[Rfam]
RNA sequence: CGUCUGUGAUGAUAUUAUUAAGGCUUGUUUCUCAAAACAUUCGCAGUGGCCGACCAAGAGCUUUCGCCUUCGCCAGGCUUGAGAGCUAAUGCUGUUUUUUUUUCCUUCCUUGGAUGUCUGAGACG
Numbered sequence: 001c002g003u004c005u006g007u008g009a010u011g012a013u014a015u016u017a018u019u020a021a022g023g024c025u026u027g028u029u030u031c032u033c034a035a036a037a038c039a040u041u042c043g044c045a046g047u048g049g050c051c052g053a054c055c056a057a058g059a060g061c062u063u064u065c066g067c068c069u070u071c072g073c074c075a076g077g078c079u080u081g082a083g084a085g086c087u088a089a090u091g092c093u094g095u096u097u098u099u100u101u102u103u104c105c106u107u108c109c110u111u112g113g114a115u116g117u118c119u120g121a122g123a124c125g
Stems, first nucleotide, its partner, number of pairs: 001125004060086006

Small nucleolar RNA SNORD14: a 125-nucleotide RNA sequence from Medicago truncatula. Taxonomically the source falls in Medicago (Eukaryota, Streptophyta, Streptophytina, Hologalegina). A search with the family's covariance model found it, with a score of 84 bits. A reference for the family is Samarsky et al. (1996), "An essential domain in Saccharomyces cerevisiae U14 snoRNA is absent in vertebrates, but conserved in other yeasts", Nucleic Acids Res. U14 small nucleolar RNA (U14 snoRNA) is required for early cleavages of eukaryotic precursor rRNAs. In yeasts, this molecule possess a stem-loop region (known as the Y-domain) which is essential for function. A similar structure, but with a different consensus sequence, is found in plants, but is absent in vertebrates.